[Rfam]
RNA sequence: UUCUUAUUGAGAGCAGGUGGAGGGACUAGCCCUAUGAAACCCGGCAACCGACUUCUUUUGUAUAAAGAAGCACGGUGCUAAAUCUUGCAGCAAUUGUGCUGAGUAAUAAGGA
Number, nucleotide and partner (000 for none) at each position: 001u112002u111003c110004u109005u108006a107007u106008u105009g000010a000011g000012a000013g042014c000015a000016g041017g040018u039019g000020g000021a000022g032023g031024g030025a000026c087027u000028a085029g084030c024031c023032c022033u000034a000035u000036g000037a000038a000039a018040c017041c016042c013043g079044g078045c077046a076047a000048c075049c074050g000051a000052c070053u069054u068055c067056u066057u065058u000059u000060g000061u000062a000063u000064a000065a057066a056067g055068a054069a053070g052071c000072a000073c000074g049075g048076u046077g045078c044079u043080a000081a000082a000083u000084c029085u028086u000087g026088c101089a100090g099091c098092a097093a000094u000095u000096g000097u092098g091099c090100u089101g088102a000103g000104u000105a008106a007107u006108a005109a004110g003111g002112a001
Description: The record is a 112-nucleotide sequence from Jeotgalibacillus soli, which matches "SAM riboswitch aptamer (S box leader)" in Rfam. The match comes from Rfam's covariance-model search (74 bits). NCBI's taxonomy places the organism under Bacteria, Bacillota, Bacilli, Caryophanaceae, Jeotgalibacillus.